RNA sequence: AGCAUCCUGGCAAUGGGUAAGAGACACCUUGUUGGUGGUGUUCUUAUAUAAGUCAGGGGCAGAGCGGAUGGCAGUCUUUUGUUCAUCCUAGCUUGAUUUCUGGGAUGGUGGCCAAAGCUGUUUUAUGCCUAGCAUAUAAAA
Numbered sequence: 001a002g003c004a005u006c007c008u009g010g011c012a013a014u015g016g017g018u019a020a021g022a023g024a025c026a027c028c029u030u031g032u033u034g035g036u037g038g039u040g041u042u043c044u045u046a047u048a049u050a051a052g053u054c055a056g057g058g059g060c061a062g063a064g065c066g067g068a069u070g071g072c073a074g075u076c077u078u079u080u081g082u083u084c085a086u087c088c089u090a091g092c093u094u095g096a097u098u099u100c101u102g103g104g105a106u107g108g109u110g111g112c113c114a115a116a117g118c119u120g121u122u123u124u125a126u127g128c129c130u131a132g133c134a135u136a137u138a139a140a141a
Stems, first nucleotide, its partner, number of pairs: 002060002005058005014050002019045003023042006080136003084132001095129001097127001101125003105121003109117001

The record is a 141-nucleotide sequence from Mus spicilegus, which matches "Small nucleolar RNA SNORA48" in Rfam. It scores 54 bits against the family's covariance model. The source organism's lineage runs through Eukaryota, Opisthokonta, Teleostomi, Euteleostomi and Mus. The snoRNA ACA 48 has been identified to guide pseudouridylation of the residue U3797 in the 28S rRNA subunit. A reference for the family is Ofengand and Bakin (1997), "Mapping to nucleotide resolution of pseudouridine residues in large subunit ribosomal RNAs from representative eukaryotes, prokaryotes, archaebacteria, mitochondria and chloroplasts", J Mol Biol.